tRNA: a 74-nucleotide sequence from Thalassotalea agarivorans. It scores 69 bits against the family's covariance model. The source organism's lineage runs through Bacteria, Pseudomonadati, Pseudomonadota, Gammaproteobacteria and Thalassotalea.

[Rfam]
RNA sequence: ACGUUCGUAGCUCAGUUGGUUAGAGCACCACCUUGACAUGGUGGGGGUCGGUGGUUCAAAUCCACUCGAACGUA
Numbered sequence: 001a002c003g004u005u006c007g008u009a010g011c012u013c014a015g016u017u018g019g020u021u022a023g024a025g026c027a028c029c030a031c032c033u034u035g036a037c038a039u040g041g042u043g044g045g046g047g048u049c050g051g052u053g054g055u056u057c058a059a060a061u062c063c064a065c066u067c068g069a070a071c072g073u074a
Base pairs, nucleotide, nucleotide: 001073002072003071004070005069006068007067010026011025012024013023028044029043030042031041032040050066051065052064053063054062
Notes: It is annotated as a transfer RNA. The base pairs follow the family's consensus structure, which is taken from published work.